RNA: mir-210 microRNA precursor family
Nucleotides: 095
Base pairs, nucleotide, nucleotide: 005081006080007079008078009077010076011075012074015071016070017069018068019067020066021065022064025060026059028058029057030056032054033053035051036050
Number, partner (000 for none) and nucleotide at each position: 001000c002000g003000g004000g005081g006080a007079u008078c009077u010076g011075u012074g013000u014000c015071a016070g017069c018068u019067g020066u021065u022064g023000g024000a025060c026059a027000c028058u029057g030056c031000c032054c033053a034000a035051g036050a037000u038000u039000a040000g041000u042000g043000u044000a045000c046000u047000u048000a049000c050036u051035c052000u053033u054032g055000u056030g057029c058028g059026u060025g061000u062000g063000a064022c065021a066020g067019c068018g069017g070016c071015u072000a073000u074012c075011a076010c077009g078008g079007a080006u081005c082000c083000c084000u085000a086000g087000a088000u089000u090000c091000g092000u093000c094000c095000a